The family of this 63-nucleotide RNA from Leishmania braziliensis is "Trypanosomatid snoRNA TB8Cs3H1". Lineage of the source: Eukaryota > Kinetoplastea > Leishmaniinae > Viannia > Leishmania braziliensis. Gene Ontology terms of the family: nucleolus and RNA processing. Rfam classes the family as an H/ACA-box small nucleolar RNA. Pairs were carried over by alignment from the consensus structure, which was predicted with WAR.

[Rfam]
RNA sequence: AUGAGGCUCGAAUGCGCUGGUCAAGACUGGUUUGCCCGAGCGUGGGAAACGCCCCAAAGAGGU
Dot-bracket structure: .((.(((......(((((((.(((.......))).)).))))).......))).)).......